[Rfam]
RNA sequence: GAGUGACAUGAUGGCAUACCAUCUUUCGGGACUGACUCCUCAAUGGAGAGUGUUUUUAUUUUUACUGAUCACUC
Numbered sequence: 001g002a003g004u005g006a007c008a009u010g011a012u013g014g015c016a017u018a019c020c021a022u023c024u025u026u027c028g029g030g031a032c033u034g035a036c037u038c039c040u041c042a043a044u045g046g047a048g049a050g051u052g053u054u055u056u057u058a059u060u061u062u063u064a065c066u067g068a069u070c071a072c073u074c
Base pairs, nucleotide, nucleotide: 001074002073003072004071005070006069
The record is a 74-nucleotide RNA sequence from Myripristis murdjan, which matches "Small nucleolar RNA SNORD2" in Rfam.
The base pairs follow the family's consensus structure, which was predicted with WAR.
Its family is annotated with nucleolus and RNA processing in the Gene Ontology.
A search with the family's covariance model found it, with a score of 68 bits.
Rfam classes the family as a C/D-box small nucleolar RNA.